[Rfam]
RNA sequence: AACCCCGGAAAAAUUUAACCAACCAUGGUUUGGUUGGGAUGAGUGGCCGGCAAGGGGUUUCGCCCGCUGAGGGGUAAACAAGGGCCCGGACUUUUUUUUUUUUUUUUGGGGGGUUUUUUUUUUUUUUUAAACCCCGCCCCGGGUACCCGGGGCGGGGUUGGCCAAAAAAAGGGUUUUUGGGGACGGGUUUAAACUUGGGCGCGAGGGGGCAGUUUUGGGCCCCCCAAAACCCCGAUCCCCCCCAAAGUUCCCCCCGGGGCCCACUUGGGAAAAAAUGGGGAGGGGACCCUUUGGGGCCCACCGCAGGGCUGCCCCCUUGGCUUUUAUCCACUUUAAAGGGGCCCUGGGAGGGGGUUCUGGGGGGUUUUAGGGUGACUCUUCCGACCGGACCGGGGUCUCCGCCCCCGGGAACGGUAUGGGGGGGGGGGGGGUCCCCUCUUACCCCCGGUGGGUAGGGGGGUUUUAUACAGGGGCCCCCUUAAACCCAUUGGGGCCCCGAUAAUAAAGGGCCAAG
Numbered sequence: 001a002a003c004c005c006c007g008g009a010a011a012a013a014u015u016u017a018a019c020c021a022a023c024c025a026u027g028g029u030u031u032g033g034u035u036g037g038g039a040u041g042a043g044u045g046g047c048c049g050g051c052a053a054g055g056g057g058u059u060u061c062g063c064c065c066g067c068u069g070a071g072g073g074g075u076a077a078a079c080a081a082g083g084g085c086c087c088g089g090a091c092u093u094u095u096u097u098u099u100u101u102u103u104u105u106u107u108g109g110g111g112g113g114u115u116u117u118u119u120u121u122u123u124u125u126u127u128u129a130a131a132c133c134c135c136g137c138c139c140c141g142g143g144u145a146c147c148c149g150g151g152g153c154g155g156g157g158u159u160g161g162c163c164a165a166a167a168a169a170a171g172g173g174u175u176u177u178u179g180g181g182g183a184c185g186g187g188u189u190u191a192a193a194c195u196u197g198g199g200c201g202c203g204a205g206g207g208g209g210c211a212g213u214u215u216u217g218g219g220c221c222c223c224c225c226a227a228a229a230c231c232c233c234g235a236u237c238c239c240c241c242c243c244a245a246a247g248u249u250c251c252c253c254c255c256g257g258g259g260c261c262c263a264c265u266u267g268g269g270a271a272a273a274a275a276u277g278g279g280g281a282g283g284g285g286a287c288c289c290u291u292u293g294g295g296g297c298c299c300a301c302c303g304c305a306g307g308g309c310u311g312c313c314c315c316c317u318u319g320g321c322u323u324u325u326a327u328c329c330a331c332u333u334u335a336a337a338g339g340g341g342c343c344c345u346g347g348g349a350g351g352g353g354g355u356u357c358u359g360g361g362g363g364g365u366u367u368u369a370g371g372g373u374g375a376c377u378c379u380u381c382c383g384a385c386c387g388g389a390c391c392g393g394g395g396u397c398u399c400c401g402c403c404c405c406c407g408g409g410a411a412c413g414g415u416a417u418g419g420g421g422g423g424g425g426g427g428g429g430g431g432u433c434c435c436c437u438c439u440u441a442c443c444c445c446c447g448g449u450g451g452g453u454a455g456g457g458g459g460g461u462u463u464u465a466u467a468c469a470g471g472g473g474c475c476c477c478c479u480u481a482a483a484c485c486c487a488u489u490g491g492g493g494c495c496c497c498g499a500u501a502a503u504a505a506a507g508g509g510c511c512a513a514g
Stems, first nucleotide, its partner, number of pairs: 016076002019073001080480003083475005089462009098187003102183004112178002116173010128161001130159013
A member of the RNA family "Eukaryotic large subunit ribosomal RNA" from Chionoecetes opilio, 514 nucleotides of a longer RNA. The family's consensus secondary structure is taken from published work.